[Rfam]
RNA: mir-137 microRNA precursor family
Organism: Notodromas monacha
RNA sequence: UCCGUUCACGCGUAUUCUUGGGUAAUUAACACGUUAUCAAGUUGUUAUUGCUUGAGAAUACACGUAGCUGCC
Number, nucleotide and partner (000 for none) at each position: 001u000002c000003c070004g069005u000006u000007c000008a065009c064010g063011c000012g061013u060014a059015u058016u057017c056018u055019u054020g053021g052022g051023u050024a000025a049026u000027u047028a046029a045030c044031a043032c041033g000034u000035u000036a000037u000038c000039a000040a000041g032042u000043u031044g030045u029046u028047a027048u000049u025050g023051c022052u021053u020054g019055a018056g017057a016058a015059u014060a013061c012062a000063c010064g009065u008066a000067g000068c000069u004070g003071c000072c000